[Rfam]
RNA: Small nucleolar RNA SNORA49
RNA sequence: UUUCCUCUACCUUACUCCAGAGGCUCUCUAACCAGUAGAGUGCUUUGGCAUUGCCUGAGGAUAUAUUGAAGUCAUGCUCAUAUCCCUCCCCAGUAGGAUGCUUGCUUCCCAUUGGGGUCUACAAUUUGAGCAAACAUU
Numbered sequence: 001u002u003u004c005c006u007c008u009a010c011c012u013u014a015c016u017c018c019a020g021a022g023g024c025u026c027u028c029u030a031a032c033c034a035g036u037a038g039a040g041u042g043c044u045u046u047g048g049c050a051u052u053g054c055c056u057g058a059g060g061a062u063a064u065a066u067u068g069a070a071g072u073c074a075u076g077c078u079c080a081u082a083u084c085c086c087u088c089c090c091c092a093g094u095a096g097g098a099u100g101c102u103u104g105c106u107u108c109c110c111a112u113u114g115g116g117g118u119c120u121a122c123a124a125u126u127u128g129a130g131c132a133a134a135c136a137u138u
Stems, first nucleotide, its partner, number of pairs: 003061005011053001017048006023041005075132003079128002088117006096110002098107001